The record is an 86-nucleotide RNA sequence from Punica granatum, which matches "Small nucleolar RNA Z102/R77" in Rfam.
The family's consensus secondary structure was predicted with PFOLD.
The source organism's lineage runs through Eukaryota, Streptophyta, Tracheophyta, malvids and Punica.
The match comes from Rfam's covariance-model search (68 bits).
RNA sequence: GAAUAAGAUGAUGAACAUAUUAUUCCUUAUUGGUUCGAUUGCCGAUAUGAUGGCAACAGAUAUGUAUUAGUUCUACCUGAUGAUCA
Numbered sequence: 001g002a003a004u005a006a007g008a009u010g011a012u013g014a015a016c017a018u019a020u021u022a023u024u025c026c027u028u029a030u031u032g033g034u035u036c037g038a039u040u041g042c043c044g045a046u047a048u049g050a051u052g053g054c055a056a057c058a059g060a061u062a063u064g065u066a067u068u069a070g071u072u073c074u075a076c077c078u079g080a081u082g083a084u085c086a
Base pairs, nucleotide, nucleotide: 003084004083037057040055041054042053043052